[Rfam]
RNA sequence: CCGGCGGCGGCCGCGAGCUGCAUCCCGUGCGGCCGCAGUGUCACGUGUAGCACCAUGGGAUUCAGCUCACGGACGCUCGCCAC
Dot-bracket structure: ..(((((....(..((.(((..(((((((...(.(((........))).)...)))))))..))).))...)....)))))..
RNA: mir-998 microRNA precursor family